[Rfam]
RNA sequence: AGACCUGAAGAGAGAGGCAAGGUCUGAUUCACAGCCUCCAUAGCAGCUGUUGAUCAGCUGUUGCCUCUCUCUUUCUAUAUG
Numbered sequence: 001a002g003a004c005c006u007g008a009a010g011a012g013a014g015a016g017g018c019a020a021g022g023u024c025u026g027a028u029u030c031a032c033a034g035c036c037u038c039c040a041u042a043g044c045a046g047c048u049g050u051u052g053a054u055c056a057g058c059u060g061u062u063g064c065c066u067c068u069c070u071c072u073u074u075c076u077a078u079a080u081g
Base pairs, nucleotide, nucleotide: 008073009072010071011070012069013068014067015066016065017064018063019062020061022059024057025056026055027054028053029052032049033048034047035046

A member of the RNA family "mir-574 microRNA precursor family" from Myotis davidii, 81 nucleotides long. The match comes from Rfam's covariance-model search (95 bits). Lineage of the source: Eukaryota > Chordata > Gnathostomata > Tetrapoda > Myotis. Clan: mir-574 microRNA precursor clan. Pairs were carried over by alignment from the consensus structure, which was predicted with RNAalifold.